[Rfam]
Shown here is a 62-nucleotide RNA sequence from Mus spicilegus, a member of the family "U7 small nuclear RNA". Taxonomically the source falls in Mus (Eukaryota, Eumetazoa, Chordata, Teleostomi). The match comes from Rfam's covariance-model search (45 bits). Rfam's curators write: Animal histone pre-mRNAs are spliced by a different mechanism than nuclear pre-mRNAs and self-splicing introns. This processing involves the U7 snRNP, which contains only one RNA species: U7. The 5' end of U7 RNA is thought to base-pair to a conserved spacer element downstream of the cleavage site in histone pre-mRNA. This family contains a number of annotated U7 pseudogenes.
RNA sequence: AGCUAACAUAGCUCUCUUAGAAUUUUUCUACCAGGUUUUCUGACUUUUGUCAGAAAAUCCAA
Numbered sequence: 001a002g003c004u005a006a007c008a009u010a011g012c013u014c015u016c017u018u019a020g021a022a023u024u025u026u027u028c029u030a031c032c033a034g035g036u037u038u039u040c041u042g043a044c045u046u047u048u049g050u051c052a053g054a055a056a057a058u059c060c061a062a
Stems, first nucleotide, its partner, number of pairs: 034059011